This 155-nucleotide RNA sequence from Populus tomentosa belongs to the Rfam family "MIR2912 microRNA precursor family". Gene Ontology terms of the family: miRNA-mediated post-transcriptional gene silencing and RISC complex.

RNA sequence: UUUAGAACUCAAGAUAUGGGUUGAACACUGAACAAUAUCUAGGCUGCAAGACAGAUGCAAACUUCUCUGUUGUUGCUAUAAUUUGGACUUGAAAGUAGUCUUAUUAAAUCUUCGACUCCCAUGAAAGUUGUAGGCCUAUGUCUUACCUUUCCAUU
Numbered sequence: 001u002u003u004a005g006a007a008c009u010c011a012a013g014a015u016a017u018g019g020g021u022u023g024a025a026c027a028c029u030g031a032a033c034a035a036u037a038u039c040u041a042g043g044c045u046g047c048a049a050g051a052c053a054g055a056u057g058c059a060a061a062c063u064u065c066u067c068u069g070u071u072g073u074u075g076c077u078a079u080a081a082u083u084u085g086g087a088c089u090u091g092a093a094a095g096u097a098g099u100c101u102u103a104u105u106a107a108a109u110c111u112u113c114g115a116c117u118c119c120c121a122u123g124a125a126a127g128u129u130g131u132a133g134g135c136c137u138a139u140g141u142c143u144u145a146c147c148u149u150u151c152c153a154u155u
Base pairs, nucleotide, nucleotide: 003153005151006150007149009145011144012143013142014141015140016139017138018137019136020135021133022132023131025129027128028127029126035122036121042118043117045115048112049111050110051109054105055104056103057102060099062098063097068092072088073087074086
Pairs were carried over by alignment from the consensus structure, which was predicted with RNAalifold. A search with the family's covariance model found it, with a score of 115 bits.